Rfam assigns this 69-nucleotide sequence to the family "narK RNA".

[Rfam]
RNA sequence: GGCACGCUAGAUGCUAGAUCCCCUUCCGGCAGGCCAACGGCGGUCUGCGCAUCACGACAAAGGCGUCGC
Numbered sequence: 001g002g003c004a005c006g007c008u009a010g011a012u013g014c015u016a017g018a019u020c021c022c023c024u025u026c027c028g029g030c031a032g033g034c035c036a037a038c039g040g041c042g043g044u045c046u047g048c049g050c051a052u053c054a055c056g057a058c059a060a061a062g063g064c065g066u067c068g069c
Base pairs, nucleotide, nucleotide: 029048030047031046032045033044034043035042

It is annotated as a cis-regulatory element.